[Rfam]
RNA sequence: GGGAAAUGUGUGUGGGGUUUUGGGUGAGCCACCUCAACCCCUUACAAGAUUAGGCUCA
Numbered sequence: 001g002g003g004a005a006a007u008g009u010g011u012g013u014g015g016g017g018u019u020u021u022g023g024g025u026g027a028g029c030c031a032c033c034u035c036a037a038c039c040c041c042u043u044a045c046a047a048g049a050u051u052a053g054g055c056u057c058a
Base pairs, nucleotide, nucleotide: 014042015041016040017039019037020036022034023033024032026057027056028055029054030053
Shown here is a 58-nucleotide RNA sequence from Pan troglodytes, a member of the family "Ma3 gene ribosomal frameshift signal". The base pairs follow the family's consensus structure, which is taken from published work. Rfam classes the family as a frameshift element.